[Rfam]
RNA sequence: GAUGCCGAUGAUGACUACAUAGACCUGUAAUGAAUGCGGUUAUGAACGCAAAAUAAAACAUCUAAGGGGCUGAGGCUUU
Dot-bracket structure: .(.(((...................................................................))).).

The record is a 79-nucleotide RNA sequence from Coptis chinensis, which matches "Small nucleolar RNA SNORD25" in Rfam. The organism belongs to Coptis, within Eukaryota. The match comes from Rfam's covariance-model search (41 bits). Its family is annotated with nucleolus and RNA processing in the Gene Ontology.